[Rfam]
RNA sequence: GCUUUCAACAUCCCCGUCUCGGAGGCGAAGGGCGGUGCCGGCGACAGCCGACACCUAACGACCUCGUGAGACUGAAGGC
Numbered sequence: 001g002c003u004u005u006c007a008a009c010a011u012c013c014c015c016g017u018c019u020c021g022g023a024g025g026c027g028a029a030g031g032g033c034g035g036u037g038c039c040g041g042c043g044a045c046a047g048c049c050g051a052c053a054c055c056u057a058a059c060g061a062c063c064u065c066g067u068g069a070g071a072c073u074g075a076a077g078g079c
Base pairs, nucleotide, nucleotide: 001079002078003077004076005075006074007073016072017071018070019069020068021067023064026060027059030056031055032054
Notes: nadA riboswitch: a 79-nucleotide RNA sequence from Edaphobacter dinghuensis. Taxonomically the source falls in Edaphobacter (Bacteria, Pseudomonadati, Terriglobales, Acidobacteriaceae). A search with the family's covariance model found it, with a score of 42 bits. By type it is a small RNA.